Rfam assigns this 189-nucleotide sequence from Marinitenerispora sediminis to the family "Actinobacteria sRNA Ms_IGR-5". A search with the family's covariance model found it, with a score of 76 bits. The organism belongs to Marinitenerispora, within Bacteria. The literature on the family includes a 2013 paper in RNA by Li et al., "Identification of small RNAs in Mycobacterium smegmatis using heterologous Hfq". The family's RNA type in Rfam is small RNA.
[Rfam]
RNA sequence: ACGCGAGAAAGGAGGUGGUCCGACAGUGCACAGCAUGAGGACUAGCGAGGUGUCCGCCCGCUAGGGCGAUACCGUCAGGUUCGCCCCGGCGAAUCCACUGUGGACACCCAGACCCCCGAGUGGUCGGCCCGGUCCAGCCGGCCCCGUCGUGCCCCGCACGGCGGAAGUCACGCUCGGGGGUCCGUCCAU
Numbered sequence: 001a002c003g004c005g006a007g008a009a010a011g012g013a014g015g016u017g018g019u020c021c022g023a024c025a026g027u028g029c030a031c032a033g034c035a036u037g038a039g040g041a042c043u044a045g046c047g048a049g050g051u052g053u054c055c056g057c058c059c060g061c062u063a064g065g066g067c068g069a070u071a072c073c074g075u076c077a078g079g080u081u082c083g084c085c086c087c088g089g090c091g092a093a094u095c096c097a098c099u100g101u102g103g104a105c106a107c108c109c110a111g112a113c114c115c116c117c118g119a120g121u122g123g124u125c126g127g128c129c130c131g132g133u134c135c136a137g138c139c140g141g142c143c144c145c146g147u148c149g150u151g152c153c154c155c156g157c158a159c160g161g162c163g164g165a166a167g168u169c170a171c172g173c174u175c176g177g178g179g180g181u182c183c184g185u186c187c188a189u
Base pairs, nucleotide, nucleotide: 014058015057016056017055018054059091060090061089062088064086065085066084067083068082069081072079073078111182112181113180114179115178116177117176118175119174120173121172122171123142124141125140126139127138128137